[Rfam]
Nucleotides: 046
Stems, first nucleotide, its partner, number of pairs: 006021006
Number, partner (000 for none) and nucleotide at each position: 001000c002000c003000a004000a005000a006021g007020g008019c009018u010017c011016u012000u013000u014000u015000a016011a017010g018009a019008g020007c021006c022000a023000c024000c025000c026000a027000c028000a029000g030000u031000u032000u033000c034000g035000u036000u037000u038000c039000a040000a041000a042000g043000a044000g045000c046000u

This 46-nucleotide sequence from Astyanax mexicanus belongs to the Rfam family "Histone 3' UTR stem-loop". The base pairs follow the family's consensus structure, which is taken from published work. The family's RNA type in Rfam is cis-regulatory element.